mir-395 microRNA precursor family: an 88-nucleotide RNA from Vitis rotundifolia.
Rfam 15.1 lists 2,798 matches to the family in 234 species.
Its family is annotated with RISC complex and miRNA-mediated post-transcriptional gene silencing in the Gene Ontology.
Rfam's curators write: mir-395 was identified in both Arabidopsis thaliana and Oryza sativa computationally and was later experimentally verified. mir-395 is thought to target mRNAs coding for ATP sulphurylases. The mature sequence is excised from the 3' arm of the hairpin.
[Rfam]
RNA sequence: GUGUCCCCUAGAGUUCCCUUGACCACUUCACUGGGGACCUUUUCUAGAGACUUCCUACUGAAGUGUUUGGGGGAACUCCUGGUGCCAU
Dot-bracket structure: ....(.((..((((((((((.(.(((((((.((((..................)))).)))))))..)))))))))))..)).)....